[Rfam]
RNA sequence: UAAUGUUACAGCACAUUCCCGAUAGGAUUCAUUAAUGUGAAGAUGCCUUGUAACCAAAUAUUUGAAUGGGGGAAUUAUUGUG
Numbered sequence: 001u002a003a004u005g006u007u008a009c010a011g012c013a014c015a016u017u018c019c020c021g022a023u024a025g026g027a028u029u030c031a032u033u034a035a036u037g038u039g040a041a042g043a044u045g046c047c048u049u050g051u052a053a054c055c056a057a058a059u060a061u062u063u064g065a066a067u068g069g070g071g072g073a074a075u076u077a078u079u080g081u082g
Base pairs, nucleotide, nucleotide: 016074017073018072019071020070024048025047026046028041029040030039031038032037054069055068
RNA: SAM-III riboswitch aptamer (SMK box)
Organism: Liquorilactobacillus oeni